[Rfam]
RNA sequence: GAUCAGCACUGUUGGGGCAGAUAAAUUCUGUAACGGAACUCCCAACUGGAAGACUUGCAAAGGUGAUUCCCUUUCC
Numbered sequence: 001g002a003u004c005a006g007c008a009c010u011g012u013u014g015g016g017g018c019a020g021a022u023a024a025a026u027u028c029u030g031u032a033a034c035g036g037a038a039c040u041c042c043c044a045a046c047u048g049g050a051a052g053a054c055u056u057g058c059a060a061a062g063g064u065g066a067u068u069c070c071c072u073u074u075c076c
Stems, first nucleotide, its partner, number of pairs: 011046006017031005
The family of this 76-nucleotide sequence is "HTH-XRE RNA".
The family's consensus secondary structure is taken from published work.
Rfam classes the family as a cis-regulatory element.